[Rfam]
Record summary: The record is a 72-nucleotide RNA sequence from Pseudomonas aeruginosa, which matches "Pseudomonas sRNA P10" in Rfam. Lineage of the source: Bacteria > Pseudomonadota > Gammaproteobacteria > Pseudomonadaceae > Pseudomonas aeruginosa. On this family, see Livny et al., Nucleic Acids Res 2006: "Identification of 17 Pseudomonas aeruginosa sRNAs and prediction of sRNA-encoding genes in 10 diverse pathogens using the bioinformatic tool sRNAPredict2". By type it is a small RNA.
RNA sequence: CGUUUCCGAUCCCACCGCUUGUCCGCUCCCCGGGCACGGCAGCAAUCCCAUCGGCGUCGGUUCCGCCGACGU
Numbered sequence: 001c002g003u004u005u006c007c008g009a010u011c012c013c014a015c016c017g018c019u020u021g022u023c024c025g026c027u028c029c030c031c032g033g034g035c036a037c038g039g040c041a042g043c044a045a046u047c048c049c050a051u052c053g054g055c056g057u058c059g060g061u062u063c064c065g066c067c068g069a070c071g072u
Stems, first nucleotide, its partner, number of pairs: 007071002017040003020036002023033003051069006